[Rfam]
Nucleotides: 168
Stems, first nucleotide, its partner, number of pairs: 005164006011155002013096001015150003020144003025140008039114005045074005054065004080105004086099003116128003
Number, partner (000 for none) and nucleotide at each position: 001000u002000u003000u004000u005164g006163u007162c008161u009160c010159u011155a012154u013096u014000a015150g016149g017148u018000g019000a020144g021143g022142c023000u024000c025140c026139u027138a028137u029136a030135c031134g032133g033000a034000g035000a036000g037000a038000c039114g040113c041112u042111a043110c044000u045074g046073c047072c048071c049070a050000g051000c052000a053000a054065u055064g056063u057062c058000g059000a060000g061000a062057g063056a064055c065054g066000c067000c068000a069000a070049u071048g072047g073046g074045u075000c076000a077000a078000c079000a080105g081104g082103a083102a084000a085000g086099a087098u088097c089000g090000g091000a092000g093000a094000g095000a096013a097088g098087g099086u100000c101000u102083u103082u104081c105080u106000u107000a108000a109000u110043g111042u112041a113040g114039c115000u116128g117127g118126u119000c120000a121000u122000g123000a124000a125000g126118a127117c128116c129000u130000a131000u132000g133032c134031c135030g136029u137028a138027u139026a140025g141000u142022g143021c144020c145000a146000a147000a148017g149016c150015u151000c152000a153000a154012a155011u156000g157000a158000g159010g160009g161008g162007g163006a164005c165000a166000a167000c168000u
About this RNA:
Shown here is a 168-nucleotide sequence from Baia soyae, a member of the family "M-box riboswitch aptamer (ykoK leader)". Taxonomically the source falls in Baia (Bacteria, Bacillota, Bacilli, Caryophanales). Pairs were carried over by alignment from the consensus structure. A search with the family's covariance model found it, with a score of 147 bits. Rfam's curators write: M-box riboswitch, also know as ykoK leader is described as a metaloregulatory RNA that sense divalent metals and function as a genetic control element of genes related to divalent metal transport in bacteria. It was first reported upstream of the B.subtilis ykoK gene and genes with related functions in other bacteria.